Rfam assigns this 101-nucleotide RNA sequence from Caballeronia novacaledonica to the family "traJ-II RNA". By type it is a cis-regulatory element. Pairs were carried over by alignment from the consensus structure, which is taken from published work.

RNA sequence: GGGCAAGAUAGGUGAAGUAGGCCCACCCGCGAGCGGGCGGACCUUCUUCACUCUUCCUUAUUCGCGCUUCGCGCUCAACGGAAAUCUUGCUGACGAGAGCC
Number, nucleotide and partner (000 for none) at each position: 001g000002g091003g090004c089005a088006a087007g086008a085009u084010a000011g000012g051013u050014g049015a048016a047017g046018u000019a044020g043021g042022c000023c000024c039025a000026c037027c036028c035029g034030c000031g000032a000033g000034c029035g028036g027037g026038c000039g024040g000041a000042c021043c020044u019045u000046c017047u016048u015049c014050a013051c012052u000053c000054u083055u082056c081057c080058u000059u000060a000061u000062u000063c000064g074065c073066g072067c071068u000069u000070c000071g067072c066073g065074c064075u000076c000077a000078a000079c000080g057081g056082a055083a054084a009085u008086c007087u006088u005089g004090c003091u002092g000093a000094c000095g000096a000097g000098a000099g000100c000101c000